[Rfam]
RNA sequence: CGAUGAGGUAGAGGUGCGCUUAUCAUGACUAACAUGUGUGAGGAUGACAACGAAGACCAUAUGUGAAAGGGGUAAGUGCCGAAGUACUCAAUUAGUCAAUAGUUGAGUAUUGGUGUAUUUCUGAACAAGGGGUACACUCUCGCGUGAGAAGCGGGGAGCUACUGAUCGA
Number, nucleotide and partner (000 for none) at each position: 001c000002g000003a000004u000005g000006a000007g163008g162009u161010a160011g159012a000013g000014g000015u000016g079017c078018g077019c076020u075021u074022a073023u072024c071025a000026u000027g000028a000029c000030u000031a000032a064033c063034a062035u061036g060037u059038g058039u000040g000041a000042g000043g000044a000045u000046g000047a000048c000049a000050a000051c000052g000053a000054a000055g000056a000057c000058c038059a037060u036061a035062u034063g033064u032065g000066a000067a000068a000069g000070g000071g024072g023073u022074a021075a020076g019077u018078g017079c016080c000081g000082a000083a111084g110085u109086a108087c107088u106089c105090a104091a103092u102093u101094a100095g000096u000097c000098a000099a000100u094101a093102g092103u091104u090105g089106a088107g087108u086109a085110u084111u083112g138113g137114u136115g135116u134117a133118u132119u131120u130121c129122u128123g000124a000125a000126c000127a000128a122129g121130g120131g119132g118133u117134a116135c115136a114137c113138u112139c000140u154141c153142g152143c151144g000145u149146g000147a000148g000149a145150a000151g143152c142153g141154g140155g000156g000157a000158g000159c011160u010161a009162c008163u007164g000165a000166u000167c000168g000169a000